[Rfam]
The record is a 368-nucleotide RNA sequence from Sphingomonas aracearum, which matches "Bacterial RNase P class A" in Rfam.
The base pairs follow the family's consensus structure, which is taken from published work.
RNA sequence: CCAGAGGGCCGGGCGGCCGCGUCAUGUGUCGAACAUGCCGAGGAAAGUCCGGGCUCCACGGAACAACGGUGCCGGGUAACGCCCGGCGGGGGCAACCCCAGGGAAAGUGCCACAGAGAGAAGACGGCGACCGUUUCGACGACGCCACGGUGAAAGGGUGCGGCAAGAGCGCACCGCGCCUCCGGCAACGGCAGGCGGCAUGGUAAACCCCACCGGGAGCAAAACCGAAUAGGGGCGGCACAGGGGCGUGUUCCCGCCCGUCGCCCGGGUUGGUUGCUGGAGCCGGCGAGCAAUCGUCGGCCAAGAGGAAUGGUCGCCUAUCCCCGUUCGCGGGGUGGACAGAACCCGGCUUACAGGCCCUCUGGCGUU
Number, nucleotide and partner (000 for none) at each position: 001c364002c363003a362004g361005a360006g359007g358008g357009c356010c355011g353012g317013g316014c315015g314016g313017c312018c311019g000020c040021g039022u000023c037024a036025u035026g034027u033028g000029u000030c000031g000032a000033a027034c026035a025036u024037g023038c000039c021040g020041a000042g000043g000044a000045a351046a350047g349048u000049c348050c347051g346052g345053g344054c218055u217056c216057c215058a000059c000060g000061g000062a000063a251064c000065a000066a000067c214068g213069g212070u211071g210072c086073c085074g084075g083076g082077u000078a000079a000080c000081g000082c076083c075084c074085g073086g072087c101088g099089g098090g097091g096092g000093c000094a000095a000096c091097c090098c089099c088100a000101g087102g209103g208104a000105a000106a000107g207108u206109g203110c202111c201112a000113c000114a000115g000116a000117g000118a000119g000120a000121a000122g000123a000124c148125g147126g144127c143128g142129a000130c000131c140132g139133u138134u000135u000136c000137g000138a133139c132140g131141a000142c128143g127144c126145c000146a000147c125148g124149g000150u000151g000152a000153a000154a000155g000156g174157g173158u172159g171160c170161g169162g000163c000164a000165a000166g000167a000168g000169c161170g160171c159172a158173c157174c156175g198176c196177g195178c194179c193180u192181c190182c189183g188184g000185c000186a000187a000188c183189g182190g181191c000192a180193g179194g178195c177196g176197g000198c175199a000200u000201g111202g110203u109204a000205a000206a108207c107208c103209c102210c071211a070212c069213c068214g067215g057216g056217a055218g054219c000220a000221a000222a274223a273224c272225c271226g000227a000228a000229u000230a000231g000232g265233g264234g263235c262236g261237g260238c000239a000240c000241a000242g000243g258244g257245g256246c255247g254248u000249g000250u000251u063252c000253c000254c247255g246256c245257c244258c243259g000260u237261c236262g235263c234264c233265c232266g000267g000268g000269u000270u000271g225272g224273u223274u222275g000276c000277u000278g000279g000280a000281g300282c299283c298284g297285g296286c295287g294288a293289g000290c000291a000292a000293u288294c287295g286296u285297c284298g283299g282300c281301c000302a000303a000304g000305a000306g000307g000308a000309a000310u000311g018312g017313u016314c015315g014316c013317c012318u000319a000320u000321c000322c000323c000324c000325g000326u000327u000328c000329g000330c000331g000332g000333g000334g000335u000336g000337g000338a000339c000340a000341g000342a000343a000344c053345c052346c051347g050348g049349c047350u046351u045352a000353c011354a000355g010356g009357c008358c007359c006360u005361c004362u003363g002364g001365c000366g000367u000368u000
Taxonomically the source falls in Sphingomonas (Bacteria, Pseudomonadati, Alphaproteobacteria, Sphingomonadaceae).